Notes: Rfam assigns this 330-nucleotide RNA from Peptoniphilus duerdenii to the family "Bacterial RNase P class A". It is annotated as a ribozyme. Its Rfam clan is "RNaseP clan". Rfam describes the family as follows. Ribonuclease P (RNase P) is a ubiquitous endoribonuclease, found in archaea, bacteria and eukarya as well as chloroplasts and mitochondria. Its best characterised activity is the generation of mature 5'-ends of tRNAs by cleaving the 5'-leader elements of precursor-tRNAs. Cellular RNase Ps are ribonucleoproteins. RNA from bacterial RNase Ps retains its catalytic activity in the absence of the protein subunit, i.e. it is a ribozyme. NCBI's taxonomy places the organism under Bacteria, Tissierellia, Tissierellales, Peptoniphilaceae, Peptoniphilus duerdenii. For this family Rfam cites "Ribonuclease P: unity and diversity in a tRNA processing ribozyme" (Frank and Pace, Annu Rev Biochem, 1998).
[Rfam]
RNA sequence: AGAGUAAAUCCAUCGAUCGCAGGAAACUGAGGAAAGUCUGCGCUCCACAGAGCAAGGGUGCCGGUGAGAGACCGGUGGAGGCGACUCUAAGGCUAGUGCAACAGAGAUAUACCGCCACACACGUGGUAAGGGUGGAAAGGUGAGGUAAGAGCUCACCAGAGGUAUAGAGAUAUACCUGCUAUGUAAACCCCACUCGGAGCAAGACCAAGUAGGAGUAAAAAGCGUUGCUCGCGCUUUCCGGGAAUGGUAGGUCGCUUGAACCAAUUGGUAACAGUUGGUCUAGAUAGAUGAUCGAAUAAACAGAACGCAGCUUAUAGAUUUACUUGACAG
Number, nucleotide and partner (000 for none) at each position: 001a000002g325003a324004g323005u322006a321007a320008a319009u318010c317011c000012a000013u295014c294015g293016a292017u291018c290019g000020c029021a028022g027023g000024a000025a000026a000027c022028u021029g020030a000031g000032g000033a000034a313035a312036g311037u000038c310039u309040g308041c307042g306043c199044u198045c197046c196047a000048c000049a000050g000051a000052g229053c000054a000055a000056g195057g194058g193059u192060g191061c075062c074063g073064g072065u071066g000067a000068g000069a000070g000071a065072c064073c063074g062075g061076u090077g088078g087079a086080g085081g000082c000083g000084a000085c080086u079087c078088u077089a000090a076091g190092g189093c000094u000095a000096g188097u187098g184099c183100a182101a000102c000103a000104g000105a000106g000107a000108u000109a000110u000111a000112c131113c130114g127115c126116c125117a124118c123119a000120c000121a000122c000123g118124u117125g116126g115127u114128a000129a000130g113131g112132g000133u000134g000135g000136a000137a000138a000139g157140g156141u155142g154143a153144g152145g000146u000147a000148a000149g000150a000151g000152c144153u143154c142155a141156c140157c139158a000159g179160a177161g176162g175163u174164a173165u172166a171167g000168a000169g000170a000171u166172a165173u164174a163175c162176c161177u160178g000179c159180u000181a000182u100183g099184u098185a000186a000187a097188c096189c092190c091191c060192a059193c058194u057195c056196g046197g045198a044199g043200c000201a000202a000203g253204a252205c251206c250207a000208a000209g000210u000211a000212g000213g239214a000215g237216u000217a000218a000219a000220a000221a235222g234223c233224g232225u231226u000227g000228c000229u052230c000231g225232c224233g223234c222235u221236u000237u215238c000239c213240g000241g000242g000243a000244a000245u000246g000247g000248u000249a000250g206251g205252u204253c203254g000255c000256u000257u000258g000259a000260a279261c278262c277263a276264a275265u274266u273267g272268g000269u000270a000271a000272c267273a266274g265275u264276u263277g262278g261279u260280c000281u000282a000283g000284a000285u000286a000287g000288a000289u000290g018291a017292u016293c015294g014295a013296a000297u000298a000299a000300a000301c000302a000303g000304a000305a000306c042307g041308c040309a039310g038311c036312u035313u034314a000315u000316a000317g010318a009319u008320u007321u006322a005323c004324u003325u002326g000327a000328c000329a000330g000